[Rfam]
RNA sequence: GGCUGGCCUGAAGGUAGCAGGUUAUCUCAGUUGAUUGUUCACAGUCAGUUAUAGAGCAAACUGCUUGCUCUACUCUUUCACCCCUUCUCACUACUGCACUUGACUAGUUGAUA
Dot-bracket structure: ((((((.(.((..((((..((......................(..((.....................))..)............))..))...))..))).))))))....
Numbered sequence: 001g002g003c004u005g006g007c008c009u010g011a012a013g014g015u016a017g018c019a020g021g022u023u024a025u026c027u028c029a030g031u032u033g034a035u036u037g038u039u040c041a042c043a044g045u046c047a048g049u050u051a052u053a054g055a056g057c058a059a060a061c062u063g064c065u066u067g068c069u070c071u072a073c074u075c076u077u078u079c080a081c082c083c084c085u086u087c088u089c090a091c092u093a094c095u096g097c098a099c100u101u102g103a104c105u106a107g108u109u110g111a112u113a
Stems, first nucleotide, its partner, number of pairs: 001109006008102001010101002014097002016092002020088002044074001047071002
Source information
The family of this 113-nucleotide RNA sequence from Piliocolobus tephrosceles is "Y RNA". NCBI's taxonomy places the organism under Eukaryota, Bilateria, Boreoeutheria, Simiiformes, Piliocolobus. It scores 42 bits against the family's covariance model. About the family: Y RNAs are components of the Ro ribonucleoprotein particle (Ro RNP), in association with Ro60 and La proteins. The Y RNAs and Ro60 and La proteins are well conserved, but the function of the Ro RNP is not known. In humans the RNA component can be one of four small RNAs -- hY1, hY3, hY4 and hY5.